[Rfam]
Glycine riboswitch aptamer: a 133-nucleotide RNA sequence from Actinospica acidithermotolerans.
Taxonomically the source falls in Actinospica (Bacteria, Bacillati, Actinomycetes, Actinospicaceae).
Rfam links the family to the GO term glycine biosynthetic process.
RNA sequence: CUCUGGAAAGCGGGGUCGUGUUCGCGCCGUGGACGUGGCGCGGGCAUGGACCUCCACCGAAGGAGAAAACCGUGCGGCGCGCCGUUUUCCGUGGGGCGCGCGGGCGGCGAAGCUCUCAGGUUUCCCGACAGAG
Numbered sequence: 001c002u003c004u005g006g007a008a009a010g011c012g013g014g015g016u017c018g019u020g021u022u023c024g025c026g027c028c029g030u031g032g033a034c035g036u037g038g039c040g041c042g043g044g045c046a047u048g049g050a051c052c053u054c055c056a057c058c059g060a061a062g063g064a065g066a067a068a069a070c071c072g073u074g075c076g077g078c079g080c081g082c083c084g085u086u087u088u089c090c091g092u093g094g095g096g097c098g099c100g101c102g103g104g105c106g107g108c109g110a111a112g113c114u115c116u117c118a119g120g121u122u123u124c125c126c127g128a129c130a131g132a133g
Base pairs, nucleotide, nucleotide: 001133002132003131004130005129012054013053014052015051016050017049056121057120058119059117060116063115064114065113070107071106072105073104